[Rfam]
Nucleotides: 089
Base pairs, nucleotide, nucleotide: 002088003087004086005085006084009081010080011078012077013076016075017074019072023070024069025068026067027064028063030062032058033057034056035055036054040052042051043050044049
Number, partner (000 for none) and nucleotide at each position: 001000u002088g003087g004086g005085g006084g007000a008000g009081g010080u011078c012077g013076g014000a015000u016075c017074c018000u019072g020000g021000g022000c023070u024069g025068u026067g027064u028063c029000c030062c031000c032058g033057g034056u035055g036054c037000c038000c039000u040052g041000c042051g043050c044049u045000c046000c047000g048000u049044g050043g051042c052040c053000u054036g055035c056034g057033c058032u059000u060000u061000u062030g063028g064027a065000u066000u067026c068025g069024c070023a071000c072019c073000g074017g075016g076013c077012c078011g079000g080010g081009c082000a083000g084006c085005c086004c087003c088002c089000u
Record summary: The family of this 89-nucleotide RNA sequence from Nyctereutes procyonoides is "mir-8799 microRNA precursor family". The family is grouped with related families in Rfam's "mir-8791 microRNA precursor clan". It scores 68 bits against the family's covariance model. The source organism's lineage runs through Eukaryota, Gnathostomata, Euteleostomi, Caniformia and Nyctereutes.